The record is a 75-nucleotide sequence, which matches "RT-6 RNA" in Rfam. The base pairs follow the family's consensus structure, which is taken from published work.

RNA sequence: UGUUCUAUACAAUUAGGUAUAGGAGAUAUGGAUUGUUGUCAAGUCUUCUGCGAGAAUUUCUUCAAGAAAUCUUGC
Numbered sequence: 001u002g003u004u005c006u007a008u009a010c011a012a013u014u015a016g017g018u019a020u021a022g023g024a025g026a027u028a029u030g031g032a033u034u035g036u037u038g039u040c041a042a043g044u045c046u047u048c049u050g051c052g053a054g055a056a057u058u059u060c061u062u063c064a065a066g067a068a069a070u071c072u073u074g075c
Stems, first nucleotide, its partner, number of pairs: 003024008056070005